[Rfam]
RNA sequence: ACAUGUCUGACUCCCUGCAUGGCAUCAACAACACUAAUCCACUUGAUGGACCAGUCAAGUCGAGUGGCGUGCAAGGAGCCAAACAUGU
Numbered sequence: 001a002c003a004u005g006u007c008u009g010a011c012u013c014c015c016u017g018c019a020u021g022g023c024a025u026c027a028a029c030a031a032c033a034c035u036a037a038u039c040c041a042c043u044u045g046a047u048g049g050a051c052c053a054g055u056c057a058a059g060u061c062g063a064g065u066g067g068c069g070u071g072c073a074a075g076g077a078g079c080c081a082a083a084c085a086u087g088u
Stems, first nucleotide, its partner, number of pairs: 001088006008081002011078004016073006023066002026062001028060001
RNA: mir-160 microRNA precursor family
Organism: Salvia splendens